[Rfam]
RNA sequence: AUUUAUUCUCAGCUCUGAGAACUGAAUUCCAUGGGUUGUACCUGAAGCUGCUGCAGACUCAUGGGGCUCAGUUCCUCAGCUGGGAUGUCUCUG
Numbered sequence: 001a002u003u004u005a006u007u008c009u010c011a012g013c014u015c016u017g018a019g020a021a022c023u024g025a026a027u028u029c030c031a032u033g034g035g036u037u038g039u040a041c042c043u044g045a046a047g048c049u050g051c052u053g054c055a056g057a058c059u060c061a062u063g064g065g066g067c068u069c070a071g072u073u074c075c076u077c078a079g080c081u082g083g084g085a086u087g088u089c090u091c092u093g
Base pairs, nucleotide, nucleotide: 008084009083011081012080013079019074020073021072022071023070024069025068033060034059035058036057
Rfam assigns this 93-nucleotide sequence from Smithornis capensis to the family "mir-146 microRNA precursor family".
The match comes from Rfam's covariance-model search (66 bits).
The source organism's lineage runs through Eukaryota, Euteleostomi, Tetrapoda, Neognathae and Smithornis.
Gene Ontology terms of the family: miRNA-mediated post-transcriptional gene silencing and RISC complex.